[Rfam]
RNA sequence: CCCGGUGUUGAAACACCGGGCUAUUAUCGGCAGUCCCUACGGGACG
Numbered sequence: 001c002c003c004g005g006u007g008u009u010g011a012a013a014c015a016c017c018g019g020g021c022u023a024u025u026a027u028c029g030g031c032a033g034u035c036c037c038u039a040c041g042g043g044a045c046g
Stems, first nucleotide, its partner, number of pairs: 001020008033045005
A member of the RNA family "Acido-Lenti-1 RNA" from Candidatus Electrothrix marina, 46 nucleotides long. The source organism's lineage runs through Bacteria, Thermodesulfobacteriota, Desulfobulbia, Desulfobulbales and Candidatus Electrothrix. Rfam classes the family as a small RNA.